[Rfam]
RNA sequence: GAACGUUCACCGGUUCACACCGGCGCACUUCUUCAGGCAGGGAACGGGGCCUGAG
Number, nucleotide and partner (000 for none) at each position: 001g000002a000003a000004c046005g045006u044007u043008c042009a000010c023011c022012g021013g020014u019015u000016c000017a000018c000019a014020c013021c012022g011023g010024c000025g000026c000027a000028c000029u000030u000031c000032u055033u054034c053035a052036g051037g050038c049039a000040g000041g000042g008043a007044a006045c005046g004047g000048g000049g038050c037051c036052u035053g034054a033055g032

Glutamine-II riboswitch aptamer: a 55-nucleotide RNA. The literature on the family includes a 2019 paper in Nucleic Acids Res by Huang et al., "Structure and ligand binding of the glutamine-II riboswitch". The sequence is in the family's curated seed alignment.